[Rfam]
RNA sequence: CGCUUUCCCUUGUGCUUGAUCUAACCAUGUGCUUGCCGCGCUCAAGACAAAACAAAACAUGGUUCCUUCAAGCACCAGGGAAGGCCA
Numbered sequence: 001c002g003c004u005u006u007c008c009c010u011u012g013u014g015c016u017u018g019a020u021c022u023a024a025c026c027a028u029g030u031g032c033u034u035g036c037c038g039c040g041c042u043c044a045a046g047a048c049a050a051a052a053c054a055a056a057a058c059a060u061g062g063u064u065c066c067u068u069c070a071a072g073c074a075c076c077a078g079g080g081a082a083g084g085c086c087a
Stems, first nucleotide, its partner, number of pairs: 002086001003084006012075007023064008
Dot-bracket structure: .(((((((...(((((((....((((((((..........................))))))))....)))))))...)))))).).